[Rfam]
RNA sequence: GGUGGUAGAUCCACCGAAGUCUGCUGUCACAAGUCGGCUUCAAACCACUGCAAAUGGCUGUUAUUAAGAGUAAUGGUCAUAAGCGUUGCAGUCAAAGCGUGAACAAAUAGUUCAGCAGGU
Numbered sequence: 001g002g003u004g005g006u007a008g009a010u011c012c013a014c015c016g017a018a019g020u021c022u023g024c025u026g027u028c029a030c031a032a033g034u035c036g037g038c039u040u041c042a043a044a045c046c047a048c049u050g051c052a053a054a055u056g057g058c059u060g061u062u063a064u065u066a067a068g069a070g071u072a073a074u075g076g077u078c079a080u081a082a083g084c085g086u087u088g089c090a091g092u093c094a095a096a097g098c099g100u101g102a103a104c105a106a107a108u109a110g111u112u113c114a115g116c117a118g119g120u
Stems, first nucleotide, its partner, number of pairs: 001015005016041006023034003046119001048091006054080002057077003061073004097116002100114004

A member of the RNA family "Group II catalytic intron D1-D4-2" from Pseudoalteromonas sp. NBT06-2, 120 nucleotides long. The organism belongs to Pseudoalteromonas, within Bacteria.